[Rfam]
RNA sequence: UCCAAUCUUCGGGGCAGGGUGAAAUUCCCGACCGGCGGUGAGAAGCAUUAUUGCUUUAAGUCCGCGACCCAUCUUAACGAAUGUUAAGGUGGUGGACCUGGUGCAAAUCCAGGACCGACAGUGACAGUCUGGAUGAGAGAAGAUGUCG
Numbered sequence: 001u002c003c004a005a006u007c008u009u010c011g012g013g014g015c016a017g018g019g020u021g022a023a024a025u026u027c028c029c030g031a032c033c034g035g036c037g038g039u040g041a042g043a044a045g046c047a048u049u050a051u052u053g054c055u056u057u058a059a060g061u062c063c064g065c066g067a068c069c070c071a072u073c074u075u076a077a078c079g080a081a082u083g084u085u086a087a088g089g090u091g092g093u094g095g096a097c098c099u100g101g102u103g104c105a106a107a108u109c110c111a112g113g114a115c116c117g118a119c120a121g122u123g124a125c126a127g128u129c130u131g132g133a134u135g136a137g138a139g140a141a142g143a144u145g146u147c148g
Base pairs, nucleotide, nucleotide: 005144006143007142008141009140010139017029018028019027031128032127033117034116035065036064037063038062060115061114069092070091071090072089097113098112099111100110101109119131120130121129